RNA sequence: GUUCCCAAUGAUGUUUAAUAUCAUACCAUGCUAAUGCUGAUCAAUUCAGUGAUUGAUUCUUUUCUCUAUUGAUUUCUGAGGGAACU
Numbered sequence: 001g002u003u004c005c006c007a008a009u010g011a012u013g014u015u016u017a018a019u020a021u022c023a024u025a026c027c028a029u030g031c032u033a034a035u036g037c038u039g040a041u042c043a044a045u046u047c048a049g050u051g052a053u054u055g056a057u058u059c060u061u062u063u064c065u066c067u068a069u070u071g072a073u074u075u076c077u078g079a080g081g082g083a084a085c086u
Base pairs, nucleotide, nucleotide: 001085002084003083004082005081